Shown here is a 173-nucleotide RNA, a member of the family "Group II catalytic intron D1-D4-3". Gene Ontology term of the family: Group II intron splicing.
RNA sequence: UCCAUCGCGAGGUGGAAUCUGAAGGAAGCCGGCGGCAAACUUCCGGUCUGACGGACAGAAAUCACAUAAGGCAUGAUAGGAUGGGUAAAGCUGCGUCGAAAGCUGAAGCCCGAAAGCUAAUCCGGAAUCCCAUGGUGUGCAUGUGGCAGAUAGAUGGAAGGAAAGAACCUGUU
Numbered sequence: 001u002c003c004a005u006c007g008c009g010a011g012g013u014g015g016a017a018u019c020u021g022a023a024g025g026a027a028g029c030c031g032g033c034g035g036c037a038a039a040c041u042u043c044c045g046g047u048c049u050g051a052c053g054g055a056c057a058g059a060a061a062u063c064a065c066a067u068a069a070g071g072c073a074u075g076a077u078a079g080g081a082u083g084g085g086u087a088a089a090g091c092u093g094c095g096u097c098g099a100a101a102g103c104u105g106a107a108g109c110c111c112g113a114a115a116g117c118u119a120a121u122c123c124g125g126a127a128u129c130c131c132a133u134g135g136u137g138u139g140c141a142u143g144u145g146g147c148a149g150a151u152a153g154a155u156g157g158a159a160g161g162a163a164a165g166a167a168c169c170u171g172u173u
Stems, first nucleotide, its partner, number of pairs: 001016006028173001030171003036165001040160006046151005062146005071138003076133002079130003083111004089104004

From the family's description: Group II introns are found in rRNA, tRNA and mRNA of organelles in fungi, plants and protists, and also in mRNA in bacteria.